This 344-nucleotide RNA from Rhizobacter sp. AJA081-3 belongs to the Rfam family "Bacterial RNase P class A". Rfam classes the family as a ribozyme. It scores 210 bits against the family's covariance model.
RNA sequence: GAAGCGGGCCAGACCGCCGCCGGUGCAGGAUCCGAAAGGUUGCACGGGAGGAAGGUCCGGACUGCACAGGGCGGCGUAGCAGCUAACGGCUGUCCGGCGCGAGCCGAGGAUCAGAGCAACAGAGACGAGUCGGUGUUCUUCGCAAGAGGGGCAUCGGGUGAAACGGGCAAUCUCUACGCGCAGCAACACCGAAUAGGCACACGAUGAUUCGGCCCGAGGAGUGUGCGGGUAGGUGGCACCGAGCCGCGCAGUGAUGCGCGGCCCAGAGGAAUGGCGGUCACGGCGGGGUGCCUCGCAAGGGGAAUCCCGCCGCACAGAAUCCGGCCUAUCGGCCCGCUUCACAC
Numbered sequence: 001g002a003a004g005c006g007g008g009c010c011a012g013a014c015c016g017c018c019g020c021c022g023g024u025g026c027a028g029g030a031u032c033c034g035a036a037a038g039g040u041u042g043c044a045c046g047g048g049a050g051g052a053a054g055g056u057c058c059g060g061a062c063u064g065c066a067c068a069g070g071g072c073g074g075c076g077u078a079g080c081a082g083c084u085a086a087c088g089g090c091u092g093u094c095c096g097g098c099g100c101g102a103g104c105c106g107a108g109g110a111u112c113a114g115a116g117c118a119a120c121a122g123a124g125a126c127g128a129g130u131c132g133g134u135g136u137u138c139u140u141c142g143c144a145a146g147a148g149g150g151g152c153a154u155c156g157g158g159u160g161a162a163a164c165g166g167g168c169a170a171u172c173u174c175u176a177c178g179c180g181c182a183g184c185a186a187c188a189c190c191g192a193a194u195a196g197g198c199a200c201a202c203g204a205u206g207a208u209u210c211g212g213c214c215c216g217a218g219g220a221g222u223g224u225g226c227g228g229g230u231a232g233g234u235g236g237c238a239c240c241g242a243g244c245c246g247c248g249c250a251g252u253g254a255u256g257c258g259c260g261g262c263c264c265a266g267a268g269g270a271a272u273g274g275c276g277g278u279c280a281c282g283g284c285g286g287g288g289u290g291c292c293u294c295g296c297a298a299g300g301g302g303a304a305u306c307c308c309g310c311c312g313c314a315c316a317g318a319a320u321c322c323g324g325c326c327u328a329u330c331g332g333c334c335c336g337c338u339u340c341a342c343a344c
Base pairs, nucleotide, nucleotide: 001340002339003338004337005336006335007334008333009332010331011329012279013278014277015276016275017274018273020048021047023045024044025043026042027041028040053327054326055325057324058323059322060321061320062183063182064181065180069215070214071213072212074179075178076177077176078175079093080092081091082090083089094108095106096105097104098103109174110173114172115171116168117167131157133154134153135152136151137150138149139148140147141146187235188234189233190232197226198225199224200223201222202221208218209217210216243262244261245260246259247258248257249256250255